[Rfam]
RNA sequence: GGUUGUAACUCCGGCGAGCUGGAGACGUUCUGGACAGGGGUUCGACUCCCCUCAUCUCCACCUAAGCGCAUCGCGGUGCGUUUAGAUGGGGGUGUACCGGUUUCGACAGGGCGGGUGAAGGUGAGCAGGCAACUCGUCAGGCGAUCGACGUUAAUGAAGCAAAUUCAUAAAUGCCAAUGAUGAGCAUUUCGCUAUUGCCGCCUAA
Numbered sequence: 001g002g003u004u005g006u007a008a009c010u011c012c013g014g015c016g017a018g019c020u021g022g023a024g025a026c027g028u029u030c031u032g033g034a035c036a037g038g039g040g041u042u043c044g045a046c047u048c049c050c051c052u053c054a055u056c057u058c059c060a061c062c063u064a065a066g067c068g069c070a071u072c073g074c075g076g077u078g079c080g081u082u083u084a085g086a087u088g089g090g091g092g093u094g095u096a097c098c099g100g101u102u103u104c105g106a107c108a109g110g111g112c113g114g115g116u117g118a119a120g121g122u123g124a125g126c127a128g129g130c131a132a133c134u135c136g137u138c139a140g141g142c143g144a145u146c147g148a149c150g151u152u153a154a155u156g157a158a159g160c161a162a163a164u165u166c167a168u169a170a171a172u173g174c175c176a177a178u179g180a181u182g183a184g185c186a187u188u189u190c191g192c193u194a195u196u197g198c199c200g201c202c203u204a205a
Stems, first nucleotide, its partner, number of pairs: 001134005015123002026113003030109003036052005053094007135150004
This 205-nucleotide RNA sequence from Dechloromonas denitrificans belongs to the Rfam family "permuted transfer-messenger RNA". A search with the family's covariance model found it, with a score of 166 bits. Rfam links the family to the GO term RNA catabolic process. Pairs were carried over by alignment from the consensus structure, which is taken from published work. Rfam classes the family as a non-coding RNA gene.